[Rfam]
Source information:
A member of the RNA family "SAM riboswitch aptamer (S box leader)" from Bacillus yapensis, 106 nucleotides long. The base pairs follow the family's consensus structure, which is taken from published work. Rfam describes the family as follows. The SAM riboswitch is found upstream of a number of genes which code for proteins involved in methionine or cysteine biosynthesis in Gram-positive bacteria. The organism belongs to Bacillus, within Bacteria. For this family Rfam cites "The S box regulon: a new global transcription termination control system for methionine and cysteine biosynthesis genes in gram-positive bacteria" (Grundy and Henkin, Mol Microbiol, 1998).
RNA sequence: UUCUUAUCAAGAGAGGUUGAGGGACUGGCCCUAUGACACCUCGGCAGCGGAAUCCUUUGGAGACUGUGCCAAAUCCAGCAAGCUAAAAAAGCUUGAAAGAUAAGAA
Numbered sequence: 001u002u003c004u005u006a007u008c009a010a011g012a013g014a015g016g017u018u019g020a021g022g023g024a025c026u027g028g029c030c031c032u033a034u035g036a037c038a039c040c041u042c043g044g045c046a047g048c049g050g051a052a053u054c055c056u057u058u059g060g061a062g063a064c065u066g067u068g069c070c071a072a073a074u075c076c077a078g079c080a081a082g083c084u085a086a087a088a089a090a091g092c093u094u095g096a097a098a099g100a101u102a103a104g105a106a
Base pairs, nucleotide, nucleotide: 001106002105003104004103005102006101007100008099013042014041015040016039017038021031022030023029025078026077027076028075043070044069045068046067048066049065053059074098079095080094081093082092083091084090